[Rfam]
RNA sequence: ACAUCAUCAUCAUUCGGAUUAGCCGCUCAGGUUUGUUCGCUGAGGGGUUAUGACUCUUUCAGCGGUGUUAUGAAAAGUAUUAGAACCCCCGAAAGAGUCUCUCUUCGGGGGUUUUAUUUU
Numbered sequence: 001a002c003a004u005c006a007u008c009a010u011c012a013u014u015c016g017g018a019u020u021a022g023c024c025g026c027u028c029a030g031g032u033u034u035g036u037u038c039g040c041u042g043a044g045g046g047g048u049u050a051u052g053a054c055u056c057u058u059u060c061a062g063c064g065g066u067g068u069u070a071u072g073a074a075a076a077g078u079a080u081u082a083g084a085a086c087c088c089c090c091g092a093a094a095g096a097g098u099c100u101c102u103c104u105u106c107g108g109g110g111g112u113u114u115u116a117u118u119u120u
Base pairs, nucleotide, nucleotide: 008039011035012034014031015030017028018027040062041061042060043059044058045057046056047055081116082115083114084113085112086111087110088109089108090107091106092105093104094102095101
Rfam assigns this 120-nucleotide RNA sequence from Thalassotalea agarivorans to the family "Histidine operon leader". The literature on the family includes a 1982 paper in Annu Rev Genet by Kolter and Yanofsky, "Attenuation in amino acid biosynthetic operons". The match comes from Rfam's covariance-model search (50 bits). At least 6 amino acid operons are known to be regulated by attenuation.